[Rfam]
RNA sequence: GAACCUCCUCUAAUGACCAAGCCGAGUGCACCAGUACUCGGCACCACUUCGAAGAAGAAGGA
Numbered sequence: 001g002a003a004c005c006u007c008c009u010c011u012a013a014u015g016a017c018c019a020a021g022c023c024g025a026g027u028g029c030a031c032c033a034g035u036a037c038u039c040g041g042c043a044c045c046a047c048u049u050c051g052a053a054g055a056a057g058a059a060g061g062a
Base pairs, nucleotide, nucleotide: 021042022041023040024039025038026037027036028035029034
RNA: Rothia-sucC RNA